This 120-nucleotide RNA sequence belongs to the Rfam family "LOOT RNA". The family's RNA type in Rfam is small RNA.
[Rfam]
RNA sequence: GACCUAACCCUUAAUUUUUAGUUUAAGAUAUGGUCGAAAAUCCCAACGAAGAUACUGAACCCCGCGUUCAGCGACUCUUCGUUGGGUCAUAUCUCGAAAGGGGUAUGUGGCCGCAAGGCU
Numbered sequence: 001g002a003c004c005u006a007a008c009c010c011u012u013a014a015u016u017u018u019u020a021g022u023u024u025a026a027g028a029u030a031u032g033g034u035c036g037a038a039a040a041u042c043c044c045a046a047c048g049a050a051g052a053u054a055c056u057g058a059a060c061c062c063c064g065c066g067u068u069c070a071g072c073g074a075c076u077c078u079u080c081g082u083u084g085g086g087u088c089a090u091a092u093c094u095c096g097a098a099a100g101g102g103g104u105a106u107g108u109g110g111c112c113g114c115a116a117g118g119c120u
Stems, first nucleotide, its partner, number of pairs: 001035004010027005042086011053073001055071006088107008109120004